RNA sequence: CCUUCAAUGACGAUUAUAUCAAAAUGACUUUCGUUCUUCUGAGUUUGCUGAAGCUACAUUUCAGGUACUGAGAAGG
Numbered sequence: 001c002c003u004u005c006a007a008u009g010a011c012g013a014u015u016a017u018a019u020c021a022a023a024a025u026g027a028c029u030u031u032c033g034u035u036c037u038u039c040u041g042a043g044u045u046u047g048c049u050g051a052a053g054c055u056a057c058a059u060u061u062c063a064g065g066u067a068c069u070g071a072g073a074a075g076g
Stems, first nucleotide, its partner, number of pairs: 001076003005072001
Annotation:
Rfam assigns this 76-nucleotide sequence from Canis lupus to the family "Small nucleolar RNA SNORD59". Pairs were carried over by alignment from the consensus structure, which was predicted with ILM. Clan: SNORD59 clan. Rfam classes the family as a C/D-box small nucleolar RNA. Lineage of the source: Eukaryota > Opisthokonta > Vertebrata > Sarcopterygii > Canis lupus.